Lysine riboswitch aptamer: a 186-nucleotide sequence from Bacillus thermotolerans. NCBI's taxonomy places the organism under Bacteria, Bacillati, Bacillota, Bacilli, Bacillus. The literature on the family includes a 2003 paper in Cell by Mandal et al., "Riboswitches Control Fundamental Biochemical Pathways in Bacillus subtilis and Other Bacteria".
[Rfam]
Nucleotides: 186
Stems, first nucleotide, its partner, number of pairs: 008179004017080009033065005039059001084115004088110008116142011144171010
Number, partner (000 for none) and nucleotide at each position: 001000c002000g003000a004000u005000g006000g007000g008179g009178u010177a011176g012000a013000g014000g015000c016000u017080g018079c019078g020077a021076a022075a023074u024073u025072a026000a027000u028000g029000a030000g031000u032000a033065a034064a035063c036062a037061g038000g039059g040000c041000g042000a043000g044000g045000a046000u047000g048000a049000c050000a051000a052000c053000g054000a055000a056000g057000a058000c059039c060000g061037c062036u063035g064034u065033u066000g067000a068000a069000a070000g071000g072025u073024a074023g075022u076021u077020u078019u079018g080017c081000c082000g083000a084115a085114a086113u087112g088110c089109a090108a091107g092106a093105g094104a095103g096000g097000c098000g099000u100000c101000a102000c103095c104094u105093c106092u107091u108090u109089u110088g111000g112087c113086a114085u115084u116142g117141g118140u119139g120138u121137u122136g123135c124134u125133u126132u127000g128000a129000a130000a131000a132126a133125g134124g135123g136122u137121a138120a139119c140118a141117c142116u143000c144171u145170u146169a147168u148167u149166g150165c151164a152163a153162a154000a155000a156000c157000g158000u159000a160000u161000c162153u163152u164151u165150g166149c167148a168147a169146u170145a171144g172000g173000g174000a175000g176011c177010u178009a179008c180000a181000g182000a183000u184000c185000g186000u

The match comes from Rfam's covariance-model search (103 bits).